Source information: Shown here is a 77-nucleotide RNA sequence from Erinaceus europaeus, a member of the family "Small nucleolar RNA U2-19". Lineage of the source: Eukaryota > Craniata > Sarcopterygii > Theria > Erinaceus. A reference for the family is Tycowski et al. (2004), "Guide RNAs with 5' Caps and Novel Box C/D snoRNA-like Domains for Modification of snRNAs in Metazoa", Curr Biol. Its family is annotated with nucleolus and RNA processing in the Gene Ontology.

RNA sequence: GAUUGAUGAUGAAAAUAGCCAAGUCUGAAUAUCAGAAGCUUUUUAGUCUACCUGAUGCAUGAUGUCUACUUCUGAGA
Numbered sequence: 001g002a003u004u005g006a007u008g009a010u011g012a013a014a015a016u017a018g019c020c021a022a023g024u025c026u027g028a029a030u031a032u033c034a035g036a037a038g039c040u041u042u043u044u045a046g047u048c049u050a051c052c053u054g055a056u057g058c059a060u061g062a063u064g065u066c067u068a069c070u071u072c073u074g075a076g077a
Stems, first nucleotide, its partner, number of pairs: 030057004037049002039046001